[Rfam]
RNA sequence: GAAGGGGCCUCUGGAGAAUCCCGAUCGUCGGAUCGGGUGCCGAAGGGGCAAGGCGCAUCGCCGCAAGCGCGAUGCCGCUGAAACUCUCAGGCAAAAGGACAGAGCAAAGCUA
Numbered sequence: 001g002a003a004g005g006g007g008c009c010u011c012u013g014g015a016g017a018a019u020c021c022c023g024a025u026c027g028u029c030g031g032a033u034c035g036g037g038u039g040c041c042g043a044a045g046g047g048g049c050a051a052g053g054c055g056c057a058u059c060g061c062c063g064c065a066a067g068c069g070c071g072a073u074g075c076c077g078c079u080g081a082a083a084c085u086c087u088c089a090g091g092c093a094a095a096a097g098g099a100c101a102g103a104g105c106a107a108a109g110c111u112a
Stems, first nucleotide, its partner, number of pairs: 009104005020037004039092003042088002046086003052079004
RNA: Glycine riboswitch aptamer